The family of this 106-nucleotide RNA sequence from Flavobacterium pallidum is "Flavo-1 RNA". The base pairs follow the family's consensus structure, which is taken from published work.
RNA sequence: CCGCAGCCCCGAUAGAAGCGGAAAUCCUUUUCCCGUGUUCUCGACACAUGCCUUCAGGCACACUCGAACUGACGGGAAAAGAUUGCAGCGGAUAGCGGGAUAAGCU
Numbered sequence: 001c002c003g004c005a006g007c008c009c010c011g012a013u014a015g016a017a018g019c020g021g022a023a024a025u026c027c028u029u030u031u032c033c034c035g036u037g038u039u040c041u042c043g044a045c046a047c048a049u050g051c052c053u054u055c056a057g058g059c060a061c062a063c064u065c066g067a068a069c070u071g072a073c074g075g076g077a078a079a080a081g082a083u084u085g086c087a088g089c090g091g092a093u094a095g096c097g098g099g100a101u102a103a104g105c106u
Stems, first nucleotide, its partner, number of pairs: 009098003013094002018089002023084004029079008